[Rfam]
Shown here is a 137-nucleotide RNA from Aureimonas glaciei, a member of the family "Alphaproteobacterial sRNA BjrC1505".
RNA sequence: AUCCGCGUUUACCCGCCAUUAAGGAUGAUGGGUGUCUAAUGGGGACAUCCAGAUUUCUGGUUAGGCCGGAUGGCUCGCCAUCCUGUCGGACGCCUCCCUGUUUAACUUCAGAGCCGCCUUGCCGCGGCUCUUUUUUU
Numbered sequence: 001a002u003c004c005g006c007g008u009u010u011a012c013c014c015g016c017c018a019u020u021a022a023g024g025a026u027g028a029u030g031g032g033u034g035u036c037u038a039a040u041g042g043g044g045a046c047a048u049c050c051a052g053a054u055u056u057c058u059g060g061u062u063a064g065g066c067c068g069g070a071u072g073g074c075u076c077g078c079c080a081u082c083c084u085g086u087c088g089g090a091c092g093c094c095u096c097c098c099u100g101u102u103u104a105a106c107u108u109c110a111g112a113g114c115c116g117c118c119u120u121g122c123c124g125c126g127g128c129u130c131u132u133u134u135u136u137u
Base pairs, nucleotide, nucleotide: 002043003042004041005014015040020038021037023035025033049060050059051058068083069082070081071080072079073078089102090101091100092099110131111130112129113128114127115126116125117124
Taxonomically the source falls in Aureimonas (Bacteria, Pseudomonadota, Alphaproteobacteria, Hyphomicrobiales). It scores 56 bits against the family's covariance model. It is annotated as a small RNA.